[Rfam]
RNA sequence: AAAAAAGGAGCAAUAGCUUCCCUCUUGUUUUAUCAAGAGGGAAGCUAUUGCUCCUUUUUU
Numbered sequence: 001a002a003a004a005a006a007g008g009a010g011c012a013a014u015a016g017c018u019u020c021c022c023u024c025u026u027g028u029u030u031u032a033u034c035a036a037g038a039g040g041g042a043a044g045c046u047a048u049u050g051c052u053c054c055u056u057u058u059u060u
Stems, first nucleotide, its partner, number of pairs: 002059015018041003023038005